[Rfam]
Source information:
Bacteroidetes FopS (family of paralogous sRNAs): a 69-nucleotide RNA from Hoylesella saccharolytica. It is annotated as a small RNA. Gene Ontology term of the family: sRNA-mediated gene silencing. Rfam's curators write: The RNA-binding protein RbpB and BTncRNA_FopS sRNA are involved in the post-transcription regulation of polysaccharide utilisation loci (PUL). FopS sRNAs function as post-transcriptional repressors by binding to the vicinity of the start codon of the first mRNA of target PUL polycistrons, typically corresponding to the cognate SusC homolog, impeding translation of the respective glycan transporter. The family has 12 seed sequences and 822 matches in Rfam 15.1. A search with the family's covariance model found it, with a score of 68 bits. A reference for the family is Ruttiger et al. (2025), "The global RNA-binding protein RbpB is a regulator of polysaccharide utilization in Bacteroides thetaiotaomicron", Nat Commun.

RNA sequence: GUGUUUUUCAUAGUAUUAGAUUUAAGGUUAACAAAGGUUGGGGCUCGGCGGAGCCCUUUUUCGUUAUCU
Numbered sequence: 001g002u003g004u005u006u007u008u009c010a011u012a013g014u015a016u017u018a019g020a021u022u023u024a025a026g027g028u029u030a031a032c033a034a035a036g037g038u039u040g041g042g043g044c045u046c047g048g049c050g051g052a053g054c055c056c057u058u059u060u061u062c063g064u065u066a067u068c069u
Stems, first nucleotide, its partner, number of pairs: 040057007